Rfam assigns this 209-nucleotide RNA from Candidatus Burkholderia verschuerenii to the family "Burkholderia sRNA 11". About the family: Identified by RNA-seq, RACE and Northern blot. Strongly expressed in biofilm. Identified in as ncRNA13. It is complimentary by 40 nucleotides with a gene encoding a regulatory protein (BCAL1948). ncS11 is strongly up-regulated in the stationary phase and biofilms, while BCAL1948 is down-regulated under these conditions. Taxonomically the source falls in Burkholderia (Bacteria, Pseudomonadati, Pseudomonadota, Burkholderiales). Rfam classes the family as a small RNA. A search with the family's covariance model found it, with a score of 113 bits.
RNA sequence: AUCCUUUCGCUAAGGAGCUCUUAUGCGGAAACUCACGGCUACUCUUAUAGUUAGCCUUCUCGGGUUGAUCGCGCUGUCCGUGUCGACCACGGCUGCCGCAUGUGGAGAUUCUGCGGGUUCCAACUAUUGAGCCCAAAGUGAUCGCCUCGCCCGAACGCGCCGAGUGCGCACGAAAAAAGGCCUUCAUCCGACGAUGAAGGCCUUUUACU
Number, nucleotide and partner (000 for none) at each position: 001a000002u035003c000004c000005u030006u029007u028008c027009g026010c025011u000012a000013a022014g021015g020016a000017g000018c000019u000020c015021u014022u013023a000024u000025g010026c009027g008028g007029a006030a005031a000032c000033u000034c000035a002036c000037g056038g055039c054040u000041a051042c050043u049044c000045u000046u000047a000048u000049a043050g042051u041052u000053a000054g039055c038056c037057u000058u000059c000060u000061c000062g152063g151064g150065u149066u000067g000068a000069u000070c000071g099072c098073g097074c095075u000076g000077u000078c092079c091080g090081u089082g088083u000084c000085g000086a000087c000088c082089a081090c080091g079092g078093c000094u000095g074096c000097c073098g072099c071100a000101u000102g000103u000104g146105g145106a000107g000108a000109u000110u141111c140112u000113g139114c138115g000116g000117g134118u000119u000120c131121c000122a000123a000124c000125u000126a000127u000128u000129g000130a000131g120132c000133c000134c117135a000136a000137a000138g114139u113140g111141a110142u000143c000144g000145c105146c104147u000148c000149g065150c064151c063152c062153g000154a000155a000156c000157g169158c168159g167160c166161c000162g000163a000164g000165u000166g160167c159168g158169c157170a000171c000172g000173a000174a000175a206176a205177a204178a203179g202180g201181c200182c199183u198184u197185c196186a195187u194188c193189c000190g000191a000192c000193g188194a187195u186196g185197a184198a183199g182200g181201c180202c179203u178204u177205u176206u175207a000208c000209u000